[Rfam]
RNA sequence: CCCCUCGAGGACGAGGAGUUCAUCUCCUACUUGCUGGGGGGUCUUCCCUCUGACUACAACUCCCUCGUCACCAGCAUCACGACGCGCAUCGACUCGUACACCGUCAGCGACGUCUACGCACACCUGCUCAGCUUCGAAA
Numbered sequence: 001c002c003c004c005u006c007g008a009g010g011a012c013g014a015g016g017a018g019u020u021c022a023u024c025u026c027c028u029a030c031u032u033g034c035u036g037g038g039g040g041g042u043c044u045u046c047c048c049u050c051u052g053a054c055u056a057c058a059a060c061u062c063c064c065u066c067g068u069c070a071c072c073a074g075c076a077u078c079a080c081g082a083c084g085c086g087c088a089u090c091g092a093c094u095c096g097u098a099c100a101c102c103g104u105c106a107g108c109g110a111c112g113u114c115u116a117c118g119c120a121c122a123c124c125u126g127c128u129c130a131g132c133u134u135c136g137a138a139a
Stems, first nucleotide, its partner, number of pairs: 005137004089107001091105003

Small nucleolar RNA Z247: a 139-nucleotide RNA from Paspalum vaginatum. A reference for the family is Chen et al. (2003), "The high diversity of snoRNAs in plants: identification and comparative study of 120 snoRNA genes from Oryza sativa", Nucleic Acids Res. The base pairs follow the family's consensus structure, which was predicted with PFOLD. Taxonomically the source falls in Paspalum (Eukaryota, Streptophyta, Spermatophyta, Poales). By type it is a C/D-box small nucleolar RNA.